Shown here is a 162-nucleotide sequence from Coregonus sp. 'balchen', a member of the family "U1 spliceosomal RNA". Lineage of the source: Eukaryota > Vertebrata > Gnathostomata > Salmoniformes > Coregonus. Pairs were carried over by alignment from the consensus structure, which is taken from published work. By type it is a spliceosomal small nuclear RNA. Gene Ontology terms of the family: U1 snRNP, mRNA 5'-splice site recognition and pre-mRNA 5'-splice site binding. It scores 112 bits against the family's covariance model.
RNA sequence: AUAUUUACCUGGCAGGGGAGACAUCUUGGUCACGAAAGAGGUUCACCCAGGACGAAGCUCGGCCAUUGCACUCCGGCCGUGCUGACCCCAUGCGAAUUCCCCAAAUGUGGGAAUCUUGACUCCAUAAGUUGUGGUAGUGGGGAACUGUGUCGUGGUCUCCAC
Numbered sequence: 001a002u003a004u005u006u007a008c009c010u011g012g013c014a015g016g017g018g019a020g021a022c023a024u025c026u027u028g029g030u031c032a033c034g035a036a037a038g039a040g041g042u043u044c045a046c047c048c049a050g051g052a053c054g055a056a057g058c059u060c061g062g063c064c065a066u067u068g069c070a071c072u073c074c075g076g077c078c079g080u081g082c083u084g085a086c087c088c089c090a091u092g093c094g095a096a097u098u099c100c101c102c103a104a105a106u107g108u109g110g111g112a113a114u115c116u117u118g119a120c121u122c123c124a125u126a127a128g129u130u131g132u133g134g135u136a137g138u139g140g141g142g143a144a145c146u147g148u149g150u151c152g153u154g155g156u157c158u159c160c161a162c
Stems, first nucleotide, its partner, number of pairs: 012123001014121002016048003020044002023042005049091001050089002054086001056083003060079005093118003096114003100110002138161005144156001146154003

Rfam describes the family as follows. U1 is a small nuclear RNA (snRNA) component of the spliceosome (involved in pre-mRNA splicing).